[Rfam]
Shown here is an 83-nucleotide RNA from Candidatus Profftia tarda, a member of the family "RpsF leader".
Rfam's curators write: Conserved and widely distributed to many bacterial species RNA structure. It precedes operon containing rpsF, which encodes ribosomal protein S6.
Lineage of the source: Bacteria > Pseudomonadati > Enterobacterales > Enterobacteriaceae > Candidatus Profftia.
The match comes from Rfam's covariance-model search (65 bits).
RNA sequence: GCCGUACAAAAACAUUCUUUGCCUCUAUGGGCUGCUGCUGUCUUUAUUAAGAGGCUGAAUAAUCCGUAGGGAGGAAUGCGAUG
Numbered sequence: 001g002c003c004g005u006a007c008a009a010a011a012a013c014a015u016u017c018u019u020u021g022c023c024u025c026u027a028u029g030g031g032c033u034g035c036u037g038c039u040g041u042c043u044u045u046a047u048u049a050a051g052a053g054g055c056u057g058a059a060u061a062a063u064c065c066g067u068a069g070g071g072a073g074g075a076a077u078g079c080g081a082u083g
Stems, first nucleotide, its partner, number of pairs: 015073006021055006029044003